Annotation
The record is a 44-nucleotide sequence from Alkalihalobacillus alcalophilus, which matches "Ribosomal protein L19 leader" in Rfam. A reference for the family is Zengel and Lindahl (1994), "Diverse mechanisms for regulating ribosomal protein synthesis in Escherichia coli", Prog Nucleic Acid Res Mol Biol. A search with the family's covariance model found it, with a score of 42 bits. By type it is a cis-regulatory leader. Rfam's curators write: This family is a putative r-protein leader autoregulatory structure found in B. subtilis and other low-GC Gram-positive bacteria. It is located in the 5' untranslated regions of mRNAs encoding ribosomal protein L19 (rplS).
Nucleotides: 044
Stems, first nucleotide, its partner, number of pairs: 003042007013034002017030003
Number, partner (000 for none) and nucleotide at each position: 001000a002000c003042g004041a005040u006039g007038u008037u009036c010000c011000g012000c013034u014033g015000u016000c017030u018029a019028u020000u021000u022000a023000a024000c025000u026000a027000u028019g029018u030017a031000c032000a033014c034013a035000a036009g037008a038007g039006c040005a041004u042003c043000u044000g